[Rfam]
This 134-nucleotide RNA sequence from Aquibacillus salsiterrae belongs to the Rfam family "PyrR binding site".
On this family, see Bonner et al., Nucleic Acids Res 2001: "Molecular recognition of pyr mRNA by the Bacillus subtilis attenuation regulatory protein PyrR".
Rfam classes the family as a cis-regulatory element.
The match comes from Rfam's covariance-model search (63 bits).
The source organism's lineage runs through Bacteria, Bacillota, Bacilli, Bacillaceae and Aquibacillus.
RNA sequence: UUUACCUUUAAAUCAGUCCUGAGAGGCUGGCAAGGUCUUGCAGAUGUGUUAUCGCUAAAGCAAUUAUGCUUCAGUGGACAACCUUAACCAUAAUUUGCAUGCAUCUUGCCAUGACGGUAAGAUGCUUUUUUCAU
Number, nucleotide and partner (000 for none) at each position: 001u000002u000003u000004a036005c035006c034007u033008u032009u000010a000011a000012a000013u030014c029015a028016g027017u026018c025019c000020u000021g000022a000023g000024a000025g018026g017027c016028u015029g014030g013031c000032a008033a007034g006035g005036u004037c000038u000039u000040g000041c000042a000043g000044a000045u000046g000047u000048g000049u000050u000051a000052u000053c000054g000055c000056u000057a000058a000059a000060g000061c000062a095063a094064u093065u092066a091067u090068g089069c000070u087071u086072c000073a084074g083075u000076g000077g000078a000079c000080a000081a000082c000083c074084u073085u000086a071087a070088c000089c068090a067091u066092a065093a064094u063095u062096u000097g129098c000099a127100u000101g125102c124103a123104u122105c121106u120107u119108g118109c117110c116111a000112u000113g000114a000115c000116g110117g109118u108119a107120a106121g105122a104123u103124g102125c101126u000127u099128u000129u097130u000131u000132c000133a000134u000